The record is a 216-nucleotide part of an RNA from Bombardia bombarda, which matches "Ascomycota telomerase RNA" in Rfam.
RNA sequence: AACCCCGUGUCCUCUUGGGCAUAAUUCCUUUGGGGGUGCGUGGAUGUCCCGAAAUGGGCAGACACUAAUUAAGCCCCCCAAAGACGACAGCGCGGUUUUUUUGAUGAUGUUUUUUGUCCGUGCGAAUCAAUCGCCCUCCUUGCCACGGCCUAUCCGAGGGGGUUCUCCUCUCUGAUGGUCCCUGGUGGAGAGGAAGCAUAAAAACUAGUCUCAGUU
Numbered sequence: 001a002a003c004c005c006c007g008u009g010u011c012c013u014c015u016u017g018g019g020c021a022u023a024a025u026u027c028c029u030u031u032g033g034g035g036g037u038g039c040g041u042g043g044a045u046g047u048c049c050c051g052a053a054a055u056g057g058g059c060a061g062a063c064a065c066u067a068a069u070u071a072a073g074c075c076c077c078c079c080a081a082a083g084a085c086g087a088c089a090g091c092g093c094g095g096u097u098u099u100u101u102u103g104a105u106g107a108u109g110u111u112u113u114u115u116g117u118c119c120g121u122g123c124g125a126a127u128c129a130a131u132c133g134c135c136c137u138c139c140u141u142g143c144c145a146c147g148g149c150c151u152a153u154c155c156g157a158g159g160g161g162g163u164u165c166u167c168c169u170c171u172c173u174g175a176u177g178g179u180c181c182c183u184g185g186u187g188g189a190g191a192g193g194a195a196g197c198a199u200a201a202a203a204a205c206u207a208g209u210c211u212c213a214g215u216u
Base pairs, nucleotide, nucleotide: 007022008021009020010019011018012017026087027086028083029082030081031080032079033077034076035075036074106210107209108208109205110204112203113202114201115200116199117198134193135192136190137189138188139187145186146185
Record summary: The organism belongs to Bombardia, within Eukaryota. It scores 514 bits against the family's covariance model. Clan: Telomerase clan. The family's RNA type in Rfam is non-coding RNA gene.